This 97-nucleotide RNA from Clostridium sp. CAG:510 belongs to the Rfam family "ZMP/ZTP riboswitch aptamer (pfl RNA motif)".
[Rfam]
Nucleotides: 097
Base pairs, nucleotide, nucleotide: 007063008062009061010060011059012058015055016054017085018084019083020082021081040051041050042049043048075091076090077089078088
Number, partner (000 for none) and nucleotide at each position: 001000u002000a003000u004000g005000a006000g007063c008062u009061a010060c011059a012058c013000a014000a015055c016054u017085g018084g019083c020082g021081g022000a023000a024000a025000c026000a027000g028000c029000a030000a031000c032000u033000g034000c035000u036000g037000u038000c039000g040051u041050g042049g043048g044000a045000g046000u047000a048043c049042c050041c051040a052000u053000a054016g055015g056000a057000a058012g059011u060010g061009u062008a063007g064000a065000a066000a067000u068000a069000a070000g071000a072000a073000a074000a075091u076090g077089c078088c079000g080000a081021c082020c083019g084018c085017c086000u087000g088078g089077g090076c091075g092000a093000a094000c095000a096000c097000a
Lineage of the source: Bacteria > Clostridia > Eubacteriales > Clostridiaceae > Clostridium.
The family's consensus secondary structure is taken from published work.